[Rfam]
Background
The record is a 154-nucleotide RNA sequence from Amborella trichopoda, which matches "MIR8565 microRNA precursor family" in Rfam. The source organism's lineage runs through Eukaryota, Viridiplantae, Streptophytina, Amborellales and Amborella. The family's consensus secondary structure was predicted with RNAalifold. Rfam links the family to the GO terms miRNA-mediated post-transcriptional gene silencing and RISC complex.
RNA sequence: CCCACAUUCAUUUAUGUAGGACCCCAAAUAAUCACCAUUAAAUUUGUCACAGAUCUCUAGAAAAGUUAUCACAUGGGUGUAAGACUUGACUUUUCUAGAGAUUUGUGUCAAAUUUAAUGGUAAUUCUUUGGAGUUCUACACACAUGGGUGUGGG
Numbered sequence: 001c002c003c004a005c006a007u008u009c010a011u012u013u014a015u016g017u018a019g020g021a022c023c024c025c026a027a028a029u030a031a032u033c034a035c036c037a038u039u040a041a042a043u044u045u046g047u048c049a050c051a052g053a054u055c056u057c058u059a060g061a062a063a064a065g066u067u068a069u070c071a072c073a074u075g076g077g078u079g080u081a082a083g084a085c086u087u088g089a090c091u092u093u094u095c096u097a098g099a100g101a102u103u104u105g106u107g108u109c110a111a112a113u114u115u116a117a118u119g120g121u122a123a124u125u126c127u128u129u130g131g132a133g134u135u136c137u138a139c140a141c142a143c144a145u146g147g148g149u150g151u152g153g154g
Base pairs, nucleotide, nucleotide: 002153003152004151005150006149007148008147009146010145011144013142015140016139017138018137019136020135021134022133024131025130026129027128028127030125031124032123034121035120036119037118038117039116040115041114042113043112044111045110046109048107049106050105051104052103053102054101055100056099057098058097059096060095061094062093063092064091065090066089067088068087069082071080072079073078